[Rfam]
The record is a 66-nucleotide sequence from Rhizobium etli, which matches "S-element" in Rfam. A reference for the family is Venkova-Canova et al. (2004), "Two discrete elements are required for the replication of a repABC plasmid: an antisense RNA and a stem-loop structure", Mol Microbiol. Gene Ontology terms of the family: translation regulator activity and mRNA transcription. Rfam classes the family as a cis-regulatory element. About the family: This family represents a group of S-elements from p42d and related plasmids. NCBI's taxonomy places the organism under Bacteria, Pseudomonadati, Alphaproteobacteria, Hyphomicrobiales, Rhizobium etli.

RNA sequence: UGUCAAGAGCUUUUGGCGCCGUUUUGGCGAGCGGAUUUCUUUUGCCUCAGUGAGGUGGAAGAGAUG
Numbered sequence: 001u002g003u004c005a006a007g008a009g010c011u012u013u014u015g016g017c018g019c020c021g022u023u024u025u026g027g028c029g030a031g032c033g034g035a036u037u038u039c040u041u042u043u044g045c046c047u048c049a050g051u052g053a054g055g056u057g058g059a060a061g062a063g064a065u066g
Stems, first nucleotide, its partner, number of pairs: 011061004017057004022053002025050001027048001029047001031045005